About this RNA: The family of this 182-nucleotide sequence from Candidatus Frankia alpina is "c-di-AMP riboswitch aptamer (ydaO/yuaA leader)". It scores 56 bits against the family's covariance model. NCBI's taxonomy places the organism under Bacteria, Bacillati, Actinomycetota, Frankiaceae, Frankia.

RNA sequence: ACGCCGAAUUCUGCCCACGCUCCGGGGUCCCUCCGAGACAGCUUGGGCAGAAGCGGGGGAACCAUGUUCCGCCAGGCGGCCCCGUCACGGCCGCCCUCGGGGUUAAGUCGCCUCCACGGAGACGACCGGGCUUCCCGGCCCGAACCCGACAGCUAACCUCGCAGGCGUACGGGAAGGAUUCU
Numbered sequence: 001a002c003g004c005c006g007a008a009u010u011c012u013g014c015c016c017a018c019g020c021u022c023c024g025g026g027g028u029c030c031c032u033c034c035g036a037g038a039c040a041g042c043u044u045g046g047g048c049a050g051a052a053g054c055g056g057g058g059g060a061a062c063c064a065u066g067u068u069c070c071g072c073c074a075g076g077c078g079g080c081c082c083c084g085u086c087a088c089g090g091c092c093g094c095c096c097u098c099g100g101g102g103u104u105a106a107g108u109c110g111c112c113u114c115c116a117c118g119g120a121g122a123c124g125a126c127c128g129g130g131c132u133u134c135c136c137g138g139c140c141c142g143a144a145c146c147c148g149a150c151a152g153c154u155a156a157c158c159u160c161g162c163a164g165g166c167g168u169a170c171g172g173g174a175a176g177g178a179u180u181c182u
Stems, first nucleotide, its partner, number of pairs: 002167004009052009053162006063099001100147003108125003128141004
Dot-bracket structure: .((((...(((((((((..........................)))))))))((((((....(...................................)(((.....(((............)))..((((......))))...))).........)))))).))))...............